A member of the RNA family "U12 minor spliceosomal RNA" from Gossypium mustelinum, 158 nucleotides long. The family's RNA type in Rfam is spliceosomal small nuclear RNA.

RNA sequence: UUGCCUUAAACUAAUGAGUAAGGAAAACAAAGCGAGCGGUAGGAGCUGCUUGCGGCGCCCAGCUUUCGGGGCGCAAGAAUUUGUGGAGGUGCAAAAGGCUGGCCGAGUGCUGACGCUGCGCUUACUUUGAGCAGAACUCGUUCGAGCGGGCCUACCAA
Number, nucleotide and partner (000 for none) at each position: 001u000002u000003g000004c023005c022006u021007u020008a019009a000010a000011c000012u000013a000014a000015u000016g000017a000018g000019u008020a007021a006022g005023g004024a000025a000026a000027a000028c000029a000030a000031a000032g053033c052034g051035a050036g049037c048038g047039g046040u000041a000042g000043g000044a000045g000046c039047u038048g037049c036050u035051u034052g033053c032054g000055g000056c073057g072058c071059c070060c069061a000062g000063c000064u000065u000066u000067c000068g000069g060070g059071g058072c057073g056074c000075a000076a000077g000078a000079a000080u000081u000082u000083g000084u000085g000086g000087a000088g000089g000090u157091g156092c000093a000094a000095a000096a153097g152098g151099c150100u149101g000102g147103c000104c000105g142106a141107g139108u000109g137110c000111u135112g000113a000114c000115g000116c000117u133118g132119c131120g000121c129122u000123u000124a000125c000126u000127u000128u000129g121130a000131g119132c118133a117134g000135a111136a000137c109138u000139c107140g000141u106142u105143c000144g000145a000146g000147c102148g000149g100150g099151c098152c097153u096154a000155c000156c091157a090158a000
The literature on the family includes a 1997 paper in Trends Biochem Sci by Tarn and Steitz, "Pre-mRNA splicing: the discovery of a new spliceosome doubles the challenge".